[Rfam]
RNA sequence: GUCGGCUAUGGUGAUAUGGUGCCAAAAACUUACAUUGGGAUGAUGGUUGGUGGUCUAUGCGCAUUGACGGGUGUAUUAACAAUUGCUCUGCCCGUACCUGUUAUCGUGGCUAAC
Dot-bracket structure: ((.((.(((((.((((.(..((..............((.(.........((.........))...........).))................)).).)))).))))).)).))
Shown here is a 114-nucleotide sequence from Adineta ricciae, a member of the family "Potassium channel RNA editing signal". Its family is annotated with adenosine to inosine editing in the Gene Ontology. Pairs were carried over by alignment from the consensus structure, which is taken from published work. The family has 85 seed sequences and 14,095 matches in Rfam 15.1. It is annotated as a cis-regulatory element.